[Rfam]
RNA sequence: AUACUUACCUGGCAGGGAAGACACCUUGAUCAUGAAGGAGGUUUUCCCAUGGUGAGGCUCAGCCAUUGCACUCGGGUUGUGCUGACCCCUAUGAUUUCCCCAAAUGCGGGAAACUCGACUGCAUAAUUUGUGGUAGUGGUGGACCGUGUGCGUGCUUUCCCCUG
Numbered sequence: 001a002u003a004c005u006u007a008c009c010u011g012g013c014a015g016g017g018a019a020g021a022c023a024c025c026u027u028g029a030u031c032a033u034g035a036a037g038g039a040g041g042u043u044u045u046c047c048c049a050u051g052g053u054g055a056g057g058c059u060c061a062g063c064c065a066u067u068g069c070a071c072u073c074g075g076g077u078u079g080u081g082c083u084g085a086c087c088c089c090u091a092u093g094a095u096u097u098c099c100c101c102a103a104a105u106g107c108g109g110g111a112a113a114c115u116c117g118a119c120u121g122c123a124u125a126a127u128u129u130g131u132g133g134u135a136g137u138g139g140u141g142g143a144c145c146g147u148g149u150g151c152g153u154g155c156u157u158u159c160c161c162c163u164g
Stems, first nucleotide, its partner, number of pairs: 012122004016048002019045003023042005049090001051088002054086001056083003060079005092117003095113003099109002138163002141160003146155003

Shown here is a 164-nucleotide RNA from Salvator merianae, a member of the family "U1 spliceosomal RNA". The match comes from Rfam's covariance-model search (135 bits). Rfam links the family to the GO terms U1 snRNP, pre-mRNA 5'-splice site binding and mRNA 5'-splice site recognition.